[Rfam]
RNA: Bacterial RNase P class B
Nucleotides: 373
Base pairs, nucleotide, nucleotide: 004373005372006371007369008321009320010319011318012317013316014315016035017034018033019032020031021030040367041366042365044364045363046362047361048360049236051234052233053232054071055070056069057068058067059066077231078230079229080228081227082100083099084098085097086096087095101120102118103117104116105115106114107113121226122225124167125166126165127164132158133157134156135155139152140151141150174224175223176220177219178218190209191208192207193206194205195204196203197202240256241255242254260290261289262288263287264286265285266284291306292305293304294303295302296301323352324351325350326348327347328346329345330344331343332342333341334340
Number, partner (000 for none) and nucleotide at each position: 001000a002000a003000u004373u005372u006371c007369g008321g009320g010319u011318a012317a013316u014315c015000g016035c017034g018033g019032u020031u021030a022000g023000c024000u025000u026000u027000u028000g029000c030021u031020a032019g033018c034017u035016g036000a037000g038000g039000a040367a041366a042365g043000u044364c045363c046362a047361u048360g049236c050000c051234c052233g053232c054071a055070c056069a057068g058067a059066c060000u061000g062000c063000g064000a065000u066059g067058u068057c069056u070055g071054u072000a073000g074000u075000g076000u077231u078230c079229g080228u081227g082100c083099u084098u085097a086096g087095c088000c089000c090000a091000a092000u093000a094000a095087g096086c097085u098084a099083a100082g101120g102118u103117g104116c105115u106114u107113u108000u109000u110000u111000u112000a113107a114106a115105a116104g117103u118102a119000a120101u121226g122225g123000c124167g125166g126165a127164a128000u129000a130000a131000g132158c133157u134156g135155c136000u137000a138000a139152g140151g141150a142000u143000u144000u145000u146000a147000u148000u149000a150141u151140c152139u153000a154000c155135g156134c157133a158132g159000u160000c161000a162000c163000g164127u165126u166125c167124c168000u169000g170000a171000a172000a173000a174224g175223u176220g177219c178218c179000a180000c181000a182000g183000u184000g185000a186000c187000g188000a189000u190209g191208u192207c193206g194205g195204u196203u197202g198000g199000a200000a201000a202197c203196a204195g205194c206193c207192g208191a209190u210000u211000u212000g213000g214000a215000a216000c217000g218178g219177g220176u221000a222000a223175a224174c225122c226121c227081c228080g229079c230078g231077a232053g233052c234051g235000a236049g237000u238000a239000a240256c241255c242254c243000a244000a245000a246000c247000u248000u249000u250000g251000g252000u253000a254242g255241g256240g257000g258000c259000g260290u261289c262288u263287c264286a265285u266284g267000u268000a269000a270000g271000g272000a273000a274000u275000u276000g277000a278000a279000c280000g281000a282000u283000g284266c285265a286264u287263g288262a289261g290260a291306g292305c293304a294303g295302a296301u297000u298000u299000u300000u301296a302295u303294c304293u305292g306291c307000a308000g309000a310000u311000a312000g313000a314000u315014g316013a317012u318011u319010a320009c321008c322000c323352u324351c325350g326348a327347a328346a329345c330344a331343u332342u333341u334340u335000u336000c337000c338000u339000g340334a341333a342332a343331g344330u345329g346328u347327u348326u349000a350325c351324g352323a353000g354000a355000c356000g357000a358000a359000a360048c361047a362046u363045g364044g365042c366041u367040u368000a369007u370000a371006g372005a373004a